[Rfam]
Rfam assigns this 64-nucleotide RNA from Escherichia coli to the family "RydC RNA". A reference for the family is Antal et al. (2005), "A small bacterial RNA regulates a putative ABC transporter", J Biol Chem. Lineage of the source: Bacteria > Enterobacterales > Enterobacteriaceae > Escherichia > Escherichia coli. The base pairs follow the family's consensus structure, which is taken from published work. About the family: This family represents a bacterial non-coding RNA called RydC. RydC is thought to regulate an mRNA, yejABEF which encodes an ABC transporter protein. The sequence is in the family's curated seed alignment.

RNA sequence: CUUCCGAUGUAGGCCCGUAUUCUUCGCCUGUACCACGGGUCGGUUUUAGUACAGGCGUUUUCUU
Numbered sequence: 001c002u003u004c005c006g007a008u009g010u011a012g013g014c015c016c017g018u019a020u021u022c023u024u025c026g027c028c029u030g031u032a033c034c035a036c037g038g039g040u041c042g043g044u045u046u047u048a049g050u051a052c053a054g055g056c057g058u059u060u061u062c063u064u
Stems, first nucleotide, its partner, number of pairs: 012041007025057009